[Rfam]
RNA sequence: UUGUACCUGAUGAUAAGUUUAAUCUGAACAAAGUGCUGUUGAUUCACAACUUAAAAUUAAACCAAAAGGAUUCUGAAAUCAA
Numbered sequence: 001u002u003g004u005a006c007c008u009g010a011u012g013a014u015a016a017g018u019u020u021a022a023u024c025u026g027a028a029c030a031a032a033g034u035g036c037u038g039u040u041g042a043u044u045c046a047c048a049a050c051u052u053a054a055a056a057u058u059a060a061a062c063c064a065a066a067a068g069g070a071u072u073c074u075g076a077a078a079u080c081a082a
Stems, first nucleotide, its partner, number of pairs: 001082003005079001
The family of this 82-nucleotide sequence from Drosophila melanogaster is "Small nucleolar RNA Me28S-Cm3227". For this family Rfam cites "Genome-wide analyses of two families of snoRNA genes from Drosophila melanogaster, demonstrating the extensive utilization of introns for coding of snoRNAs" (Huang et al., RNA, 2005). The family has 13 seed sequences and 45 matches in Rfam 15.1.